[Rfam]
RNA sequence: GUGCGGGCCUCUGCUCGCACACUCCUCACACCCCCCGGCCCGGCGCGAUCGGGCUUU
Numbered sequence: 001g002u003g004c005g006g007g008c009c010u011c012u013g014c015u016c017g018c019a020c021a022c023u024c025c026u027c028a029c030a031c032c033c034c035c036c037g038g039c040c041c042g043g044c045g046c047g048a049u050c051g052g053g054c055u056u057u
Stems, first nucleotide, its partner, number of pairs: 001020008037055007
Dot-bracket structure: ((((((((....))))))))................(((((((.....)))))))..
Shown here is a 57-nucleotide RNA from Synechococcus sp. RS9916, a member of the family "Cyanobacterial functional RNA 1". Lineage of the source: Bacteria > Bacillati > Cyanobacteriota > Synechococcaceae > Synechococcus. By type it is a small RNA.